[Rfam]
RNA sequence: UGGAGGCGAGGAUGAUGAUGAUUCAGUUAGAUGUUUGAAGGGCAUAUGUCCUAGUGAACUCAAUUUAUGAGGCUUAUUGAUAUCCUGGCUUGCCUUAG
Numbered sequence: 001u002g003g004a005g006g007c008g009a010g011g012a013u014g015a016u017g018a019u020g021a022u023u024c025a026g027u028u029a030g031a032u033g034u035u036u037g038a039a040g041g042g043c044a045u046a047u048g049u050c051c052u053a054g055u056g057a058a059c060u061c062a063a064u065u066u067a068u069g070a071g072g073c074u075u076a077u078u079g080a081u082a083u084c085c086u087g088g089c090u091u092g093c094c095u096u097a098g
Stems, first nucleotide, its partner, number of pairs: 001098001003096008
RNA: Small nucleolar RNA Z266